[Rfam]
RNA sequence: GAGUCUAUCACGUGUGCGAGUGCCCGGGUUCCACACCCUCGCGCGCAGCGAAAGCAAUUGCCUGCAGUCCCCACGCCCACGCAUCCGGCGUUUUUCGUCGCGUCUAGCACACUUGGUAGGACCCGAAAGAUGGUGAACUAUGCCUGGGUAGGAUGAAGCCAGGCGAAAGCCUGGUGGAGGUCCGCAGCGAUACUGACGUGCAAAUCGUUCGUCAAACCUGGGUAUAGGGGCGAAAGACUAAUCGAACCAUCUAGUAGCUGGUU
Numbered sequence: 001g002a003g004u005c006u007a008u009c010a011c012g013u014g015u016g017c018g019a020g021u022g023c024c025c026g027g028g029u030u031c032c033a034c035a036c037c038c039u040c041g042c043g044c045g046c047a048g049c050g051a052a053a054g055c056a057a058u059u060g061c062c063u064g065c066a067g068u069c070c071c072c073a074c075g076c077c078c079a080c081g082c083a084u085c086c087g088g089c090g091u092u093u094u095u096c097g098u099c100g101c102g103u104c105u106a107g108c109a110c111a112c113u114u115g116g117u118a119g120g121a122c123c124c125g126a127a128a129g130a131u132g133g134u135g136a137a138c139u140a141u142g143c144c145u146g147g148g149u150a151g152g153a154u155g156a157a158g159c160c161a162g163g164c165g166a167a168a169g170c171c172u173g174g175u176g177g178a179g180g181u182c183c184g185c186a187g188c189g190a191u192a193c194u195g196a197c198g199u200g201c202a203a204a205u206c207g208u209u210c211g212u213c214a215a216a217c218c219u220g221g222g223u224a225u226a227g228g229g230g231c232g233a234a235a236g237a238c239u240a241a242u243c244g245a246a247c248c249a250u251c252u253a254g255u256a257g258c259u260g261g262u263u
Base pairs, nucleotide, nucleotide: 005119006118007117008116009115010114012112013111014110015109016108017107020044021043022042026038027037028036029035048055049054060082061081063079064078067074068073085102086100087099088098089097090096122261123260125258129251130250131249132248133247134246138227139226140225141224142223143222144221145220146219147218148217149215151183152182153181154180158175159174160173161172162171163170164169187212188211189210190209192208193207195206196205229239230238